RNA: U12 minor spliceosomal RNA
RNA sequence: AUGCCUUAAACUAAUGAGUAAGGAAAAUAACGAGCCUUGGUAAUGCUUGGCUCCUCAGCAAAGUUCUGAGAGGAAUUUCUCAGGGGUACAGGUUGCCCUUGGGUGACCCGCCUACUUUAGCGGGAUGCCCCUGUUGUCGCGAUCUGCCCU
Number, nucleotide and partner (000 for none) at each position: 001a000002u000003g000004c023005c022006u021007u020008a019009a000010a000011c000012u000013a000014a000015u000016g000017a000018g000019u008020a007021a006022g005023g004024a000025a000026a000027a000028u000029a000030a000031c000032g053033a052034g051035c050036c049037u000038u000039g046040g000041u000042a000043a000044u000045g000046c039047u000048u000049g036050g035051c034052u033053c032054c070055u069056c068057a067058g066059c000060a000061a000062a000063g000064u000065u000066c058067u057068g056069a055070g054071a000072g000073g000074a000075a000076u000077u000078u000079c000080u000081c000082a000083g150084g149085g148086g147087u146088a000089c000090a145091g144092g143093u142094u141095g140096c139097c000098c133099u000100u000101g130102g129103g128104u127105g126106a000107c124108c123109c122110g121111c120112c000113u000114a000115c000116u000117u000118u000119a000120g111121c110122g109123g108124g107125a000126u105127g104128c103129c102130c101131c000132u000133g098134u000135u000136g000137u000138c000139g096140c095141g094142a093143u092144c091145u090146g087147c086148c085149c084150u083